Rfam assigns this 46-nucleotide sequence from Galemys pyrenaicus to the family "Histone 3' UTR stem-loop".
The base pairs follow the family's consensus structure, which is taken from published work.
Rfam links the family to the GO term mRNA 3'-end processing by stem-loop binding and cleavage.
The literature on the family includes a 1995 paper in Nucleic Acids Res by Williams and Marzluff, "The sequence of the stem and flanking sequences at the 3' end of histone mRNA are critical determinants for the binding of the stem-loop binding protein".
The source organism's lineage runs through Eukaryota, Dipnotetrapodomorpha, Mammalia, Eulipotyphla and Galemys.
From the family's description: The mRNAs of metazoan histone genes lack a poly-A tail. 3' end processing occurs at a site between a highly conserved stem-loop (modelled by this family) and a purine rich region around 20 nts downstream (the histone downstream element, or HDE). The stem-loop is bound by a 31 kDa stem-loop binding protein (SLBP - also termed the histone hairpin binding protein, or HBP). Together with U7 snRNA binding of the HDE, SLBP binding nucleate s the formation of the processing complex.
RNA sequence: CCAAAGGCUCUUUUCAGAGCCACCUACAAUAUCAACUUGAAGGGCU
Numbered sequence: 001c002c003a004a005a006g007g008c009u010c011u012u013u014u015c016a017g018a019g020c021c022a023c024c025u026a027c028a029a030u031a032u033c034a035a036c037u038u039g040a041a042g043g044g045c046u
Stems, first nucleotide, its partner, number of pairs: 006021006